This 121-nucleotide RNA sequence from Dialister micraerophilus belongs to the Rfam family "Streptococcus sRNA SpR18". The family has 23 seed sequences and 63 matches in Rfam 15.1. Rfam classes the family as a small RNA. A reference for the family is Mann et al. (2012), "Control of virulence by small RNAs in Streptococcus pneumoniae", PLoS Pathog. The organism belongs to Dialister micraerophilus, within Bacteria.
[Rfam]
RNA sequence: GUAGACAGUACAAAAUGGUUACUGGUACUCAAAUGGUACUGGAAGUAAAAAAGAAUAAACUUAAUAAUAGUUCCAAAUGGUUUAUAUUUGGAGAAAAAAUUAGACCGUAGUUAAAAGCUGC
Numbered sequence: 001g002u003a004g005a006c007a008g009u010a011c012a013a014a015a016u017g018g019u020u021a022c023u024g025g026u027a028c029u030c031a032a033a034u035g036g037u038a039c040u041g042g043a044a045g046u047a048a049a050a051a052a053g054a055a056u057a058a059a060c061u062u063a064a065u066a067a068u069a070g071u072u073c074c075a076a077a078u079g080g081u082u083u084a085u086a087u088u089u090g091g092a093g094a095a096a097a098a099a100u101u102a103g104a105c106c107g108u109a110g111u112u113a114a115a116a117g118c119u120g121c
Stems, first nucleotide, its partner, number of pairs: 001022004006017002026114001033108004041056001071092001073091007